[Rfam]
RNA sequence: UGUAACAGCCUGUGCCAGUUUUCCUGUCCACCCCUUGGGGUGUGUUCGGUCGAGAGCUGGCAGUCCGUUCGUGACCAUGGAGCCGUCUUGAGCAGUGGACGUCAAUAUCCGAACGACAGGCUGCAGAGCAAGUCGGCGCGUUGCUGGAAGCCUGAGUUCGCCGGAAGGUUUGAGCUCGGUGGAAGGCGCGUGCCAGGCAGACUGAUUCCUGUUCCCUUUUGCUAGACCGUCGGUCCAUGACGCUUGGGACAAACCCAGUUGGCUACAUAU
Numbered sequence: 001u002g003u004a005a006c007a008g009c010c011u012g013u014g015c016c017a018g019u020u021u022u023c024c025u026g027u028c029c030a031c032c033c034c035u036u037g038g039g040g041u042g043u044g045u046u047c048g049g050u051c052g053a054g055a056g057c058u059g060g061c062a063g064u065c066c067g068u069u070c071g072u073g074a075c076c077a078u079g080g081a082g083c084c085g086u087c088u089u090g091a092g093c094a095g096u097g098g099a100c101g102u103c104a105a106u107a108u109c110c111g112a113a114c115g116a117c118a119g120g121c122u123g124c125a126g127a128g129c130a131a132g133u134c135g136g137c138g139c140g141u142u143g144c145u146g147g148a149a150g151c152c153u154g155a156g157u158u159c160g161c162c163g164g165a166a167g168g169u170u171u172g173a174g175c176u177c178g179g180u181g182g183a184a185g186g187c188g189c190g191u192g193c194c195a196g197g198c199a200g201a202c203u204g205a206u207u208c209c210u211g212u213u214c215c216c217u218u219u220u221g222c223u224a225g226a227c228c229g230u231c232g233g234u235c236c237a238u239g240a241c242g243c244u245u246g247g248g249a250c251a252a253a254c255c256c257a258g259u260u261g262g263c264u265a266c267a268u269a270u
Stems, first nucleotide, its partner, number of pairs: 006123008014061005020055004024049003028044001029042002033038001070115003075111001078104003082100001084098001136191006152178001154177006161168002197263002200260005213249004221243002225235004

Background:
The record is a 270-nucleotide RNA sequence from Ascochyta rabiei, which matches "A. fumigatus sRNA Afu_309" in Rfam. The family's consensus secondary structure was predicted with WAR. The source organism's lineage runs through Eukaryota, Pezizomycotina, Pleosporales, Didymellaceae and Ascochyta. It scores 95 bits against the family's covariance model.